The record is a 75-nucleotide sequence from Streptomyces sp. NBRC 110611, which matches "ASpks TB sRNA" in Rfam.

RNA sequence: CUUCACCGAACCGAGCAGCAGCGGGUGUUCGGGGUCGCGGCCCUGUCCGUACGUGGCCAGCAGCGCCUGCGCCUC
Numbered sequence: 001c002u003u004c005a006c007c008g009a010a011c012c013g014a015g016c017a018g019c020a021g022c023g024g025g026u027g028u029u030c031g032g033g034g035u036c037g038c039g040g041c042c043c044u045g046u047c048c049g050u051a052c053g054u055g056g057c058c059a060g061c062a063g064c065g066c067c068u069g070c071g072c073c074u075c
Base pairs, nucleotide, nucleotide: 014026016024032070038065039064043060044059045058047056048055049054
The base pairs follow the family's consensus structure, which is taken from published work. NCBI's taxonomy places the organism under Bacteria, Actinomycetota, Kitasatosporales, Streptomycetaceae, Streptomyces. The family's RNA type in Rfam is antisense RNA.